[Rfam]
RNA sequence: AUGGCGGAUUCUGAAAAGCCCAAAUAGAGUAGGAA
Numbered sequence: 001a002u003g004g005c006g007g008a009u010u011c012u013g014a015a016a017a018g019c020c021c022a023a024a025u026a027g028a029g030u031a032g033g034a035a
Stems, first nucleotide, its partner, number of pairs: 003020003010034003
Rfam assigns this 35-nucleotide sequence from Reichenbachiella faecimaris to the family "DUF805b RNA". The family's consensus secondary structure is taken from published work.